Rfam assigns this 72-nucleotide RNA from Erinaceus europaeus to the family "Small nucleolar RNA SNORD59".
Rfam 15.1 lists 1,355 matches to the family in 620 species.
Pairs were carried over by alignment from the consensus structure, which was predicted with ILM.
The literature on the family includes a 2002 paper in Mol Cell Biol by Galardi et al., "Purified box C/D snoRNPs are able to reproduce site-specific 2'-O-methylation of target RNA in vitro".
Its family is annotated with nucleolus and RNA processing in the Gene Ontology.

RNA sequence: CCUUCACUGAUGAAUUAUAUUCUGACUUUCGUUCUUCUGAGUUUGCUGAAGCCAGAUGUGAUUCUGAGGAGG
Numbered sequence: 001c002c003u004u005c006a007c008u009g010a011u012g013a014a015u016u017a018u019a020u021u022c023u024g025a026c027u028u029u030c031g032u033u034c035u036u037c038u039g040a041g042u043u044u045g046c047u048g049a050a051g052c053c054a055g056a057u058g059u060g061a062u063u064c065u066g067a068g069g070a071g072g
Stems, first nucleotide, its partner, number of pairs: 001072003005068001